[Rfam]
RNA sequence: CCAUCUGUAUCACCAGAUGAACCUAGGAGCCUGAAUAAAGUAGCGGCUCUGACAAUGUAACGAAGGUUGGUAUGCACCAAUCGGGAUCGAAAUCGUGAGAAGACGAUCCUCCUGAUAACCACAAAUCGGGUGAGUGC
Numbered sequence: 001c002c003a004u005c006u007g008u009a010u011c012a013c014c015a016g017a018u019g020a021a022c023c024u025a026g027g028a029g030c031c032u033g034a035a036u037a038a039a040g041u042a043g044c045g046g047c048u049c050u051g052a053c054a055a056u057g058u059a060a061c062g063a064a065g066g067u068u069g070g071u072a073u074g075c076a077c078c079a080a081u082c083g084g085g086a087u088c089g090a091a092a093u094c095g096u097g098a099g100a101a102g103a104c105g106a107u108c109c110u111c112c113u114g115a116u117a118a119c120c121a122c123a124a125a126u127c128g129g130g131u132g133a134g135u136g137c
Stems, first nucleotide, its partner, number of pairs: 002019006027049005032040001065082006083110004093100002111130006